Rfam assigns this 89-nucleotide RNA from Paraclostridium bifermentans to the family "skipping-rope RNA". Rfam classes the family as a small RNA.

RNA sequence: AGGUUUUGAAGUUGGAAAGAGUCCAAUACUCUACUUAAAGGUUUUAAGUAAUUGUGAGAGAUGCAGAAUUACUCGCUCUGCCAAACCUA
Numbered sequence: 001a002g003g004u005u006u007u008g009a010a011g012u013u014g015g016a017a018a019g020a021g022u023c024c025a026a027u028a029c030u031c032u033a034c035u036u037a038a039a040g041g042u043u044u045u046a047a048g049u050a051a052u053u054g055u056g057a058g059a060g061a062u063g064c065a066g067a068a069u070u071a072c073u074c075g076c077u078c079u080g081c082c083a084a085a086c087c088u089a
Base pairs, nucleotide, nucleotide: 001088002087003086004085005084006083008082011027012026013025014024015023019074020073021072022071029058033049034048035047036046037045038044063081064080065079066078067077